Shown here is an 89-nucleotide sequence from Ziziphus jujuba, a member of the family "Plastid-psbM 3UTR RNA".
RNA sequence: GAGACGAUAGUAUGGCAGACAGAAAGAUUCAUAUUUUUCUUCCUACCAUACUAUCUAGUAUUCUUAUGGUACUAUAUAAAGUUUACUGU
Numbered sequence: 001g002a003g004a005c006g007a008u009a010g011u012a013u014g015g016c017a018g019a020c021a022g023a024a025a026g027a028u029u030c031a032u033a034u035u036u037u038u039c040u041u042c043c044u045a046c047c048a049u050a051c052u053a054u055c056u057a058g059u060a061u062u063c064u065u066a067u068g069g070u071a072c073u074a075u076a077u078a079a080a081g082u083u084u085a086c087u088g089u
Base pairs, nucleotide, nucleotide: 006055007054008053009052010051011050012049013048014047015046017044018043021040022039023038024037025036026035027034028033

Lineage of the source: Eukaryota > Streptophytina > Rosales > Paliureae > Ziziphus jujuba. For this family Rfam cites "Retrograde signaling in plants: A critical review focusing on the GUN pathway and beyond" (Richter et al., Plant Commun, 2023). Plastid psbM is a non-coding RNA (ncRNA) recognised in plastids. It was found in the three prime untranslated region (3UTR) of psbM gene, its 3UTR location suggests a role in transcript maturation. It is annotated as a cis-regulatory element.